RNA: mir-574 microRNA precursor family
RNA sequence: AGGCCUAGAGGGAGAGGCAGGGUCUGAUCUGCAGCCUCCAGCUGUUGAUCAGCCUUUGCCUCUCUCUUUCUCUCCA
Numbered sequence: 001a002g003g004c005c006u007a008g009a010g011g012g013a014g015a016g017g018c019a020g021g022g023u024c025u026g027a028u029c030u031g032c033a034g035c036c037u038c039c040a041g042c043u044g045u046u047g048a049u050c051a052g053c054c055u056u057u058g059c060c061u062c063u064c065u066c067u068u069u070c071u072c073u074c075c076a
Base pairs, nucleotide, nucleotide: 008068009067010066011065012064013063014062015061016060017059018058019057020056022054024052025051026050027049028048029047032044033043034042035041